This 335-nucleotide RNA from Clostridioides difficile belongs to the Rfam family "Bacterial RNase P class A". NCBI's taxonomy places the organism under Bacteria, Bacillati, Bacillota, Peptostreptococcaceae, Clostridioides. It is one of the family's seed sequences. It is annotated as a ribozyme.
RNA sequence: UAAGUAAGCCAGAUAAUCGCAUGUAAUCUUACAUGAGGAAAGUCGGAGCUCCAUAGAGCAGGGUGCUAGGUAACGCCUAGUGGGAGCGAUCCUAAGGAUAGUGCAACAGAAAUAAACCGCCACUAUUGUGGUAAGGAUGGAAAGGCGAGGUAAGAGCUCACCAGCAGCUAGGCGACUAGUUGGCUAUGUAAACCCCACCUGGAGCAAGACCAAGAUAGGAAUAAAGAGUGCUGCUCGUACUCUCCGGUAGGUAGGUCGCUUGAGCCUAUUGGUGACAAUAGGCCUAGAAAGAUGAUUAUCUAAUACAGAACUCCGCUUAUAGACUUGCUUAAUUA
Numbered sequence: 001u002a003a004g005u006a007a008g009c010c011a012g013a014u015a016a017u018c019g020c021a022u023g024u025a026a027u028c029u030u031a032c033a034u035g036a037g038g039a040a041a042g043u044c045g046g047a048g049c050u051c052c053a054u055a056g057a058g059c060a061g062g063g064u065g066c067u068a069g070g071u072a073a074c075g076c077c078u079a080g081u082g083g084g085a086g087c088g089a090u091c092c093u094a095a096g097g098a099u100a101g102u103g104c105a106a107c108a109g110a111a112a113u114a115a116a117c118c119g120c121c122a123c124u125a126u127u128g129u130g131g132u133a134a135g136g137a138u139g140g141a142a143a144g145g146c147g148a149g150g151u152a153a154g155a156g157c158u159c160a161c162c163a164g165c166a167g168c169u170a171g172g173c174g175a176c177u178a179g180u181u182g183g184c185u186a187u188g189u190a191a192a193c194c195c196c197a198c199c200u201g202g203a204g205c206a207a208g209a210c211c212a213a214g215a216u217a218g219g220a221a222u223a224a225a226g227a228g229u230g231c232u233g234c235u236c237g238u239a240c241u242c243u244c245c246g247g248u249a250g251g252u253a254g255g256u257c258g259c260u261u262g263a264g265c266c267u268a269u270u271g272g273u274g275a276c277a278a279u280a281g282g283c284c285u286a287g288a289a290a291g292a293u294g295a296u297u298a299u300c301u302a303a304u305a306c307a308g309a310a311c312u313c314c315g316c317u318u319a320u321a322g323a324c325u326u327g328c329u330u331a332a333u334u335a
Stems, first nucleotide, its partner, number of pairs: 001331008010322001011320001012300007020035006040318003044315005049204004056236004061200005066080005081095001082093004096195002101193002103189003117136002119132005144162002147159003164184001165182007208257004215248002218245003227241005264283008